[Rfam]
RNA sequence: ACUUGUUGCGGGGCCAUGAGCUGUGGGCGCCCGCGGCAUCAGACAAACACUCUGCCACGGGAACAUCGUGGCAUUUUCGGGCGUU
Numbered sequence: 001a002c003u004u005g006u007u008g009c010g011g012g013g014c015c016a017u018g019a020g021c022u023g024u025g026g027g028c029g030c031c032c033g034c035g036g037c038a039u040c041a042g043a044c045a046a047a048c049a050c051u052c053u054g055c056c057a058c059g060g061g062a063a064c065a066u067c068g069u070g071g072c073a074u075u076u077u078c079g080g081g082c083g084u085u
Base pairs, nucleotide, nucleotide: 004038005037006036007035008034009033010032011031013028014027015026017025018024053073054072055071056070057069058068059067
The record is an 85-nucleotide sequence from Streptomyces prunicolor, which matches "nrdJ RNA" in Rfam. Rfam classes the family as a small RNA. Rfam's curators put it in the seed alignment.